[Rfam]
RNA sequence: CCGGGAAGCACACGGCCGCAACUCCGACGCGUCGGCGGUGCCGACUUGGGAUUGCGGAUGUGU
Numbered sequence: 001c002c003g004g005g006a007a008g009c010a011c012a013c014g015g016c017c018g019c020a021a022c023u024c025c026g027a028c029g030c031g032u033c034g035g036c037g038g039u040g041c042c043g044a045c046u047u048g049g050g051a052u053u054g055c056g057g058a059u060g061u062g063u
Base pairs, nucleotide, nucleotide: 010063011062012061013060016057017056018055019054020053021052024050025049031045032044033043034042035041036040
RNA: S15-Halobacteria ribosomal protein leader